[Rfam]
RNA sequence: GAGGCCAGCGGUCCCCGCCCGACAGCGAUAUUCGCCCUCGGGCGCGCUUUGC
Numbered sequence: 001g002a003g004g005c006c007a008g009c010g011g012u013c014c015c016c017g018c019c020c021g022a023c024a025g026c027g028a029u030a031u032u033c034g035c036c037c038u039c040g041g042g043c044g045c046g047c048u049u050u051g052c
Stems, first nucleotide, its partner, number of pairs: 016044007025035004
Dot-bracket structure: ...............(((((((..((((...))))..)))))))........
Background
ffh sRNA: a 52-nucleotide sequence from Methylovirgula sp. 4M-Z18. A reference for the family is Meyer et al. (2009), "Identification of candidate structured RNAs in the marine organism 'Candidatus Pelagibacter ubique'", BMC Genomics. Taxonomically the source falls in Methylovirgula (Bacteria, Pseudomonadati, Hyphomicrobiales, Beijerinckiaceae). Pairs were carried over by alignment from the consensus structure, which is taken from published work. It is annotated as a small RNA.